[Rfam]
RNA: Small nucleolar RNA U49
Organism: Ricinus communis
RNA sequence: UCCCAAUGAGGAAGAAAUCCCUUAAAAGAUAGGAAGUGCCGUAUGACACUUUAACCAGCAGCGGUUGC
Number, nucleotide and partner (000 for none) at each position: 001u000002c000003c000004c000005a000006a000007u000008g000009a000010g000011g000012a000013a000014g062015a000016a000017a000018u000019c000020c000021c000022u000023u000024a000025a000026a000027a000028g000029a000030u000031a000032g000033g052034a051035a050036g049037u048038g047039c000040c000041g000042u000043a000044u000045g000046a000047c038048a037049c036050u035051u034052u033053a000054a000055c000056c000057a000058g000059c000060a000061g000062c014063g000064g000065u000066u000067g000068c000